[Rfam]
RNA: small nucleolar RNA snoR127
RNA sequence: CUGGGAUGAUGCAAUUUAGCCAAAUCAGACAUUGAUGUGCUCCAGAAGGCACUGCCUUCUGUCGAAGUGUUUUUCUCUGUUGAUAUCAUCGAGAUUGGUUGCUUUCUGACCAGA
Numbered sequence: 001c002u003g004g005g006a007u008g009a010u011g012c013a014a015u016u017u018a019g020c021c022a023a024a025u026c027a028g029a030c031a032u033u034g035a036u037g038u039g040c041u042c043c044a045g046a047a048g049g050c051a052c053u054g055c056c057u058u059c060u061g062u063c064g065a066a067g068u069g070u071u072u073u074u075c076u077c078u079g080u081u082g083a084u085a086u087c088a089u090c091g092a093g094a095u096u097g098g099u100u101g102c103u104u105u106c107u108g109a110c111c112a113g114a
Stems, first nucleotide, its partner, number of pairs: 001113004